[Rfam]
RNA: FMN riboswitch aptamer (RFN element)
RNA sequence: ACGUAGUUUCAGGGAAGGUGCAAUUCCUUACUGGCGGUAGCGCCGCGCAUCCGAUGCGCCCACGGCGAAGCCCGCAACCCGCGAAAGCGGUGGAUUCGGUCGGAUUCCGAAGCCAACGGUGACAGUCCGGAUGAAAGAAACGGAGC
Numbered sequence: 001a002c003g004u005a006g007u008u009u010c011a012g013g014g015a016a017g018g019u020g021c022a023a024u025u026c027c028u029u030a031c032u033g034g035c036g037g038u039a040g041c042g043c044c045g046c047g048c049a050u051c052c053g054a055u056g057c058g059c060c061c062a063c064g065g066c067g068a069a070g071c072c073c074g075c076a077a078c079c080c081g082c083g084a085a086a087g088c089g090g091u092g093g094a095u096u097c098g099g100u101c102g103g104a105u106u107c108c109g110a111a112g113c114c115a116a117c118g119g120u121g122a123c124a125g126u127c128c129g130g131a132u133g134a135a136a137g138a139a140a141c142g143g144a145g146c
Stems, first nucleotide, its partner, number of pairs: 004143001006141005016028003030126002032115002034075004070113002079090002095111005117129003